[Rfam]
RNA sequence: CCAAGCUGACGUGUCAUGCCACGUCAGCACCACAUCACUGCCACGUCAUCACAUAUGAUAUUGGAUGAUGACGUGGCAGUGACGUGGUGCUGACGUGGCAUGACACGUCAGCUUCAACU
Numbered sequence: 001c002c003a004a005g006c007u008g009a010c011g012u013g014u015c016a017u018g019c020c021a022c023g024u025c026a027g028c029a030c031c032a033c034a035u036c037a038c039u040g041c042c043a044c045g046u047c048a049u050c051a052c053a054u055a056u057g058a059u060a061u062u063g064g065a066u067g068a069u070g071a072c073g074u075g076g077c078a079g080u081g082a083c084g085u086g087g088u089g090c091u092g093a094c095g096u097g098g099c100a101u102g103a104c105a106c107g108u109c110a111g112c113u114u115c116a117a118c119u
Stems, first nucleotide, its partner, number of pairs: 003114019023094011035082016
RNA: MIR4387 microRNA precursor family
Organism: Senna tora